[Rfam]
RNA sequence: GUUUCCGUAAGAUAUGUUUGAUAUUCUUGGUUGUUUUUUAAAGAAUCGACCAGGAAUCAAACAUAUUAUUAUGGUGGU
Numbered sequence: 001g002u003u004u005c006c007g008u009a010a011g012a013u014a015u016g017u018u019u020g021a022u023a024u025u026c027u028u029g030g031u032u033g034u035u036u037u038u039u040a041a042a043g044a045a046u047c048g049a050c051c052a053g054g055a056a057u058c059a060a061a062c063a064u065a066u067u068a069u070u071a072u073g074g075u076g077g078u
Stems, first nucleotide, its partner, number of pairs: 005074005011067012024054002029051005
RNA: mir-190 microRNA precursor family